[Rfam]
RNA sequence: ACUCAACACUAACAAAUUAAAAUGAGUAAAUCUUUGCUGCUAAAGCAUGCUGCCCUGCGCAGAUCCUUGAUACAGCAAGUUAGCUCAAAACUUGUCGACACGAGUUU
Numbered sequence: 001a002c003u004c005a006a007c008a009c010u011a012a013c014a015a016a017u018u019a020a021a022a023u024g025a026g027u028a029a030a031u032c033u034u035u036g037c038u039g040c041u042a043a044a045g046c047a048u049g050c051u052g053c054c055c056u057g058c059g060c061a062g063a064u065c066c067u068u069g070a071u072a073c074a075g076c077a078a079g080u081u082a083g084c085u086c087a088a089a090a091c092u093u094g095u096c097g098a099c100a101c102g103a104g105u106u107u
Stems, first nucleotide, its partner, number of pairs: 023087005034078005043068003050062004
RNA: 6S-Flavo RNA